7SK RNA: a 323-nucleotide sequence from Myotis brandtii.
The family is grouped with related families in Rfam's "7SK clan".
NCBI's taxonomy places the organism under Eukaryota, Metazoa, Vertebrata, Theria, Myotis.
It scores 334 bits against the family's covariance model.
A reference for the family is Blencowe (2002), "Transcription: surprising role for an elusive small nuclear RNA", Curr Biol.
RNA sequence: GGAUGUGAGGGCGAUCUGGCUGCGACAUCUGCCACCCCAUGGAUCGCCAGGGUUGAUCUGGCUGACUAGGCGGGUGUCCCCCUCCUCCCUCACCGAUCCAUGUGCGUCCCUCCCCGAAGCUGCGCGCUCGGUCGAAGAGAACGACCUUCCCCGCGAGGAGAGGACCGGUCUUCGGUCAAAGGUAUACGAGUAGCUGCGCUCCCCUGCUAGAACCUCCAAACAAGCUCUCAAGGUCCAUUUGUAGGAGAACGUAGGGUAGUCAAGCUUCCAAGAAUCCAGACACAUCCAAAUGAGGAGCUGCACGUGGCAGUCUGCCUUCCUUU
Numbered sequence: 001g002g003a004u005g006u007g008a009g010g011g012c013g014a015u016c017u018g019g020c021u022g023c024g025a026c027a028u029c030u031g032c033c034a035c036c037c038c039a040u041g042g043a044u045c046g047c048c049a050g051g052g053u054u055g056a057u058c059u060g061g062c063u064g065a066c067u068a069g070g071c072g073g074g075u076g077u078c079c080c081c082c083u084c085c086u087c088c089c090u091c092a093c094c095g096a097u098c099c100a101u102g103u104g105c106g107u108c109c110c111u112c113c114c115c116g117a118a119g120c121u122g123c124g125c126g127c128u129c130g131g132u133c134g135a136a137g138a139g140a141a142c143g144a145c146c147u148u149c150c151c152c153g154c155g156a157g158g159a160g161a162g163g164a165c166c167g168g169u170c171u172u173c174g175g176u177c178a179a180a181g182g183u184a185u186a187c188g189a190g191u192a193g194c195u196g197c198g199c200u201c202c203c204c205u206g207c208u209a210g211a212a213c214c215u216c217c218a219a220a221c222a223a224g225c226u227c228u229c230a231a232g233g234u235c236c237a238u239u240u241g242u243a244g245g246a247g248a249a250c251g252u253a254g255g256g257u258a259g260u261c262a263a264g265c266u267u268c269c270a271a272g273a274a275u276c277c278a279g280a281c282a283c284a285u286c287c288a289a290a291u292g293a294g295g296a297g298c299u300g301c302a303c304g305u306g307g308c309a310g311u312c313u314g315c316c317u318u319c320c321u322u323u
Stems, first nucleotide, its partner, number of pairs: 001099003005093007013084002018081002024078010036064001037061003042058004046053002107163002110160004114131004119127002133153002139150001141148001193265003199259002202256006214247004220242005288323003292318004297311005